[Rfam]
RNA sequence: UGAGCAGGCUAUGCGAUAGCGGGGGAGGCAACUCCCGUGAGGAAAGUCCGGGCAUCACAGAGCAGGGUAGCUGCUAACGGCAGCCGGGGGCGACCCUAGGGCUAGUGCAACAGAGAGAUACUGCCGCAGCAAUGCGGUGAUGGUGGAAAGGCGGGGUAAGAGCCCACCAGAGUGCGUGAGAGCGUACUGCUAUGUAAACCCUACCCGAUGCAACGUCUAUUGGUACCGUCUUUCAACAUCUGCUCGGUGGAAAGGCGUGUAAUGGCGGCUUGAGCGUUCCGGCGACGGAUCGCCUAGAUAAAUUAUCGCACACGACAGAACUCGGCUUAUCGGCCUGGUCAUGGC
Numbered sequence: 001u002g003a004g005c006a007g008g009c010u011a012u013g014c015g016a017u018a019g020c021g022g023g024g025g026a027g028g029c030a031a032c033u034c035c036c037g038u039g040a041g042g043a044a045a046g047u048c049c050g051g052g053c054a055u056c057a058c059a060g061a062g063c064a065g066g067g068u069a070g071c072u073g074c075u076a077a078c079g080g081c082a083g084c085c086g087g088g089g090g091c092g093a094c095c096c097u098a099g100g101g102c103u104a105g106u107g108c109a110a111c112a113g114a115g116a117g118a119u120a121c122u123g124c125c126g127c128a129g130c131a132a133u134g135c136g137g138u139g140a141u142g143g144u145g146g147a148a149a150g151g152c153g154g155g156g157u158a159a160g161a162g163c164c165c166a167c168c169a170g171a172g173u174g175c176g177u178g179a180g181a182g183c184g185u186a187c188u189g190c191u192a193u194g195u196a197a198a199c200c201c202u203a204c205c206c207g208a209u210g211c212a213a214c215g216u217c218u219a220u221u222g223g224u225a226c227c228g229u230c231u232u233u234c235a236a237c238a239u240c241u242g243c244u245c246g247g248u249g250g251a252a253a254g255g256c257g258u259g260u261a262a263u264g265g266c267g268g269c270u271u272g273a274g275c276g277u278u279c280c281g282g283c284g285a286c287g288g289a290u291c292g293c294c295u296a297g298a299u300a301a302a303u304u305a306u307c308g309c310a311c312a313c314g315a316c317a318g319a320a321c322u323c324g325g326c327u328u329a330u331c332g333g334c335c336u337g338g339u340c341a342u343g344g345c
Stems, first nucleotide, its partner, number of pairs: 001341003005337006011330001012310007020039002023036005044328003048325005053210004060245004065206005070084005085099001086097004100201002105199002107195003121142001123138006150168002153165003170190001171188007214267004227257006237249004274293003278289004
RNA: Bacterial RNase P class A
Organism: Ruminococcus champanellensis